[Rfam]
Description
A member of the RNA family "Small nucleolar RNA snoR27", 90 nucleotides long. Clan: snR68 clan.
RNA sequence: UAUGGAUCGGUGAUGUUUAUUUUAAACUGCGUUAUCUAUCCGAAUCUUCCCAAAGGAAUUGAAGAUAACCAUAUAUUGCUGAGAUCCAUU
Numbered sequence: 001u002a003u004g005g006a007u008c009g010g011u012g013a014u015g016u017u018u019a020u021u022u023u024a025a026a027c028u029g030c031g032u033u034a035u036c037u038a039u040c041c042g043a044a045u046c047u048u049c050c051c052a053a054a055g056g057a058a059u060u061g062a063a064g065a066u067a068a069c070c071a072u073a074u075a076u077u078g079c080u081g082a083g084a085u086c087c088a089u090u
Stems, first nucleotide, its partner, number of pairs: 002089006